[Rfam]
RNA: Small nucleolar RNA Z221/R21b
RNA sequence: GGGCAGUGAUGAGAGAUUGAGAAUGUCAUGCACCACUCUGAUUAAAUUCUGUGCUGAUAACCUCCUAUUACCCAUAUUUUUCUGAGGCCC
Numbered sequence: 001g002g003g004c005a006g007u008g009a010u011g012a013g014a015g016a017u018u019g020a021g022a023a024u025g026u027c028a029u030g031c032a033c034c035a036c037u038c039u040g041a042u043u044a045a046a047u048u049c050u051g052u053g054c055u056g057a058u059a060a061c062c063u064c065c066u067a068u069u070a071c072c073c074a075u076a077u078u079u080u081u082c083u084g085a086g087g088c089c090c
Stems, first nucleotide, its partner, number of pairs: 001090004